[Rfam]
RNA: small nucleolar RNA snoR135
Organism: Colocasia esculenta
RNA sequence: CCUGCAGGAUUAUGUUUAUCGGUGUUAUGCUCCUUUAUUUGCAUAUCUUGCCACAAGUGUUUCCUGCUUCAGAAAAUUCUUAGGAAAAUGGGCAGUUAGGUUUCAGAGAAUCAUCCAUUUGAAAUUCAGCAACAAAUAUUUCCUUAAUUGAU
Numbered sequence: 001c002c003u004g005c006a007g008g009a010u011u012a013u014g015u016u017u018a019u020c021g022g023u024g025u026u027a028u029g030c031u032c033c034u035u036u037a038u039u040u041g042c043a044u045a046u047c048u049u050g051c052c053a054c055a056a057g058u059g060u061u062u063c064c065u066g067c068u069u070c071a072g073a074a075a076a077u078u079c080u081u082a083g084g085a086a087a088a089u090g091g092g093c094a095g096u097u098a099g100g101u102u103u104c105a106g107a108g109a110a111u112c113a114u115c116c117a118u119u120u121g122a123a124a125u126u127c128a129g130c131a132a133c134a135a136a137u138a139u140u141u142c143c144u145u146a147a148u149u150g151a152u
Stems, first nucleotide, its partner, number of pairs: 004067005009061001014044002017041002081146004086141005095133003
Dot-bracket structure: ...((((((....((.((.....................)).))................).))))).............((((.(((((....(((.................................)))...))))).))))......